[Rfam]
RNA: Alphaproteobacterial ar15
RNA sequence: AGCCGGCGAGUUCCGAUGGACUUCUCCUCCCAGUGCCAUCUUCGUCGGCUGUGUUCCCCUCUGGAGGUUUCGUUUUAAACCUUCCGAUUUUACGGGCCGGAGAGCAAUCUCAAGGCCCGUUUUU
Numbered sequence: 001a002g003c004c005g006g007c008g009a010g011u012u013c014c015g016a017u018g019g020a021c022u023u024c025u026c027c028u029c030c031c032a033g034u035g036c037c038a039u040c041u042u043c044g045u046c047g048g049c050u051g052u053g054u055u056c057c058c059c060u061c062u063g064g065a066g067g068u069u070u071c072g073u074u075u076u077a078a079a080c081c082u083u084c085c086g087a088u089u090u091u092a093c094g095g096g097c098c099g100g101a102g103a104g105c106a107a108u109c110u111c112a113a114g115g116c117c118c119g120u121u122u123u124u
Base pairs, nucleotide, nucleotide: 001050002049003048004047005046007044008043009042015040016039017038018037063084064083065082066081067080068079069078070077093119094118095117096116097115098114100111101110102109